[Rfam]
RNA: Small nucleolar RNA Z247
RNA sequence: AAGGUUGAUGAAGAGGAUGUUGUCUCUCACAUCCUUGCCGGGCUCGAUGAGGAGUUCAACCCCGUAGUUUCCACCAUGUGCUCCCGGGUAGAGCCGGUCACUUUCCCGGAGUUGUACUCGCAGCUCCUAAGCUUCAAGA
Numbered sequence: 001a002a003g004g005u006u007g008a009u010g011a012a013g014a015g016g017a018u019g020u021u022g023u024c025u026c027u028c029a030c031a032u033c034c035u036u037g038c039c040g041g042g043c044u045c046g047a048u049g050a051g052g053a054g055u056u057c058a059a060c061c062c063c064g065u066a067g068u069u070u071c072c073a074c075c076a077u078g079u080g081c082u083c084c085c086g087g088g089u090a091g092a093g094c095c096g097g098u099c100a101c102u103u104u105c106c107c108g109g110a111g112u113u114g115u116a117c118u119c120g121c122a123g124c125u126c127c128u129a130a131g132c133u134u135c136a137a138g139a
Stems, first nucleotide, its partner, number of pairs: 005137004085108003091105003
Dot-bracket structure: ....((((............................................................................(((...(((.........)))))).........................))))..